This 117-nucleotide sequence from Hevea brasiliensis belongs to the Rfam family "Small nucleolar RNA snoR100". The literature on the family includes a 2002 paper in Curr Biol by Marker et al., "Experimental RNomics: identification of 140 candidates for small non-messenger RNAs in the plant Arabidopsis thaliana". Gene Ontology terms of the family: RNA processing and nucleolus. Taxonomically the source falls in Hevea (Eukaryota, Viridiplantae, Euphyllophyta, fabids).
[Rfam]
RNA sequence: CGAUGAAGGUAGCAUGGUAAGGUGUACAGAAAUUGAACUUUAUGGGUUGACAUGUCUGCUGCCUCAGAUGCUUCUGUUGGAGCCUUUGAUUUGGGGGCCUGGUUCUGACCCACACUU
Numbered sequence: 001c002g003a004u005g006a007a008g009g010u011a012g013c014a015u016g017g018u019a020a021g022g023u024g025u026a027c028a029g030a031a032a033u034u035g036a037a038c039u040u041u042a043u044g045g046g047u048u049g050a051c052a053u054g055u056c057u058g059c060u061g062c063c064u065c066a067g068a069u070g071c072u073u074c075u076g077u078u079g080g081a082g083c084c085u086u087u088g089a090u091u092u093g094g095g096g097g098c099c100u101g102g103u104u105c106u107g108a109c110c111c112a113c114a115c116u117u
Base pairs, nucleotide, nucleotide: 012025013024014023015022044100045099046098047097048096054090055089056088058084060082